Shown here is a 226-nucleotide RNA from Basidiobolus meristosporus, a member of the family "Small nucleolar RNA U3".
The family is grouped with related families in Rfam's "U3 clan".
Its family is annotated with RNA processing and nucleolus in the Gene Ontology.
The family's RNA type in Rfam is C/D-box small nucleolar RNA.
Taxonomically the source falls in Basidiobolus meristosporus (Eukaryota, Basidiobolomycetes, Basidiobolaceae, Basidiobolus).
The family's consensus secondary structure is taken from published work.
About the family: Small nucleolar RNAs (snoRNAs) are involved in the processing and modification of rRNA in the nucleolus. There are two main classes of snoRNAs: the box C/D class, and the box H/ACA class. U3 snoRNA is a member of the box C/D class. Indeed, the box C/D element is a subset of the six short sequence elements found in all U3 snoRNAs, namely boxes A, A', B, C, C', and D. The U3 snoRNA secondary structure is characterised by a small 5' domain (with boxes A and A'), and a larger 3' domain (with boxes B, C, C', and D), the two domains being linked by a single-stranded hinge. Boxes B and C form the B/C motif, which appears to be exclusive to U3 snoRNAs, and boxes C' and D form the C'/D motif. The latter is functionally similar to the C/D motifs found in other snoRNAs. The 5' domain and the hinge region act as a pre-rRNA-binding domain. The 3' domain has conserved protein-binding sites. Both the box B/C and box C'/D motifs are sufficient for nuclear retention of U3 snoRNA. The box C'/D motif is also necessary for nucleolar localisation, stability and hyper-methylation of U3 snoRNA. Both box B/C and C'/D motifs are involved in specific protein interactions and are necessary for the rRNA processing functions of U3 snoRNA.
RNA sequence: ACGACUGUACUUUACAGGAUUAUGUAUAUAGUACAUUCCCAGUCUUUGUUUCCCAACAAAGACACUAAUACCAAGCUGGUAGAUGAGAUGUAGUGCGCUGUCCGUAAAGGGAAGUGUGAACAGUGGCCGAUCGGUCUUUCGGGACCUUAGGACCUGUUCAGUUGAUGAACUUGCCGGUUGAUUAUUCCAACAGCCUGGCGAGGACGGUCUGCACAUUCUGACAGCU
Numbered sequence: 001a002c003g004a005c006u007g008u009a010c011u012u013u014a015c016a017g018g019a020u021u022a023u024g025u026a027u028a029u030a031g032u033a034c035a036u037u038c039c040c041a042g043u044c045u046u047u048g049u050u051u052c053c054c055a056a057c058a059a060a061g062a063c064a065c066u067a068a069u070a071c072c073a074a075g076c077u078g079g080u081a082g083a084u085g086a087g088a089u090g091u092a093g094u095g096c097g098c099u100g101u102c103c104g105u106a107a108a109g110g111g112a113a114g115u116g117u118g119a120a121c122a123g124u125g126g127c128c129g130a131u132c133g134g135u136c137u138u139u140c141g142g143g144a145c146c147u148u149a150g151g152a153c154c155u156g157u158u159c160a161g162u163u164g165a166u167g168a169a170c171u172u173g174c175c176g177g178u179u180g181a182u183u184a185u186u187c188c189a190a191c192a193g194c195c196u197g198g199c200g201a202g203g204a205c206g207g208u209c210u211g212c213a214c215a216u217u218c219u220g221a222c223a224g225c226u
Stems, first nucleotide, its partner, number of pairs: 003039001006035006016027001018025001047062001049060003074226005093214005098207006107172003117160004124151001133146004174198002176195005